[Rfam]
Nucleotides: 421
Stems, first nucleotide, its partner, number of pairs: 001417011012337007020047002023044004052405003056402005061232004068274004073228005078092005093107001094105004108223002113221002115217003130164002132160003137155004172190006192212001193210007236294004245285006265279005301320008
Number, partner (000 for none) and nucleotide at each position: 001417a002416a003415a004414g005413u006412a007411a008410a009409c010408a011407g012337g013336g014335c015334a016333a017332u018331c019000g020047c021046c022000g023044g024043u025042g026041g027000a028000u029000g030000a031000c032000c033000g034000c035000a036000a037000g038000g039000u040000a041026c042025c043024a044023c045000g046021g047020g048000a049000g050000g051000a052405a053404a054403g055000u056402c057401c058400g059399a060398g061232c062231u063230c064229c065000a066000c067000a068274g069273g070272g071271c072000a073228g074227g075226g076225u077224g078092c079091c080090g081089g082088c083000u084000a085000a086000c087000g088082g089081c090080c091079g092078g093107u094105g095104g096103g097102g098000g099000c100000a101000a102097c103096c104095c105094u106000a107093a108223g109222g110000c111000u112000a113221g114220u115217g116216c117215c118000a119000c120000a121000g122000a123000a124000a125000u126000a127000a128000a129000a130164c131163c132160g133159c134158c135000g136000a137155u138154g139153g140152a141000a142000g143000c144000u145000u146000u147000a148000c149000a150000g151000c152140u153139u154138c155137a156000c157000a158134g159133g160132u161000a162000a163131g164130g165000a166000u167000g168000c169000a170000a171000c172190g173189g174188u175187g176186c177185g178000g179000u180000a181000a182000g183000a184000g185177c186176g187175c188174a189173c190172c191000a192212g193210c194209a195208g196207c197206a198205u199204g200000g201000a202000g203000a204199c205198a206197u207196g208195c209194u210193g211000g212192c213000u214000a215117g216116g217115u218000a219000a220114a221113c222109c223108c224077c225076a226075c227074c228073u229064g230063g231062a232061g233000c234000a235000a236294g237293a238292c239291c240000u241000u242000a243000c244000a245285g246284g247283a248282a249281u250280c251000u252000g253000c254000a255000c256000a257000u258000u259000g260000a261000u262000g263000c264000a265279a266278c267277u268276g269275u270000a271071g272070c273069c274068c275269g276268c277267a278266g279265u280250g281249a282248u283247u284246c285245c286000g287000g288000g289000u290000u291239g292238g293237u294236c295000g296000c297000u298000u299000g300000a301320g302319u303318g304317a305316u306315g307314c308313a309000g310000c311000a312000a313308u314307g315306c316305a317304u318303c319302a320301c321000c322000u323000a324000g325000a326000c327000a328000g329000a330000u331018g332017a333016u334015u335014g336013c337012c338000a339000c340000u341000c342000c343000g344000c345000a346000u347000g348000u349000g350000g351000g352000a353000g354000g355000c356000g357000a358000a359000g360000c361000g362000a363000c364000a365000a366000g367000a368000g369000a370000u371000c372000g373000c374000c375000g376000a377000u378000g379000u380000a381000c382000c383000a384000c385000u386000u387000g388000g389000a390000g391000g392000a393000c394000a395000g396000a397000a398060c399059u400058c401057g402056g403054c404053u405052u406000a407011c408010u409009g410008u411007u412006u413005g414004c415003u416002u417001u418000c419000c420000u421000g
Annotation: Bacterial RNase P class A: a 421-nucleotide sequence from Kroppenstedtia pulmonis. Taxonomically the source falls in Kroppenstedtia (Bacteria, Bacilli, Caryophanales, Thermoactinomycetaceae).